[Rfam]
RNA sequence: ACCUGCUAAACCUCUGAUGCCGUAAGGCGUUGAGCAC
Numbered sequence: 001a002c003c004u005g006c007u008a009a010a011c012c013u014c015u016g017a018u019g020c021c022g023u024a025a026g027g028c029g030u031u032g033a034g035c036a037c
Stems, first nucleotide, its partner, number of pairs: 016031006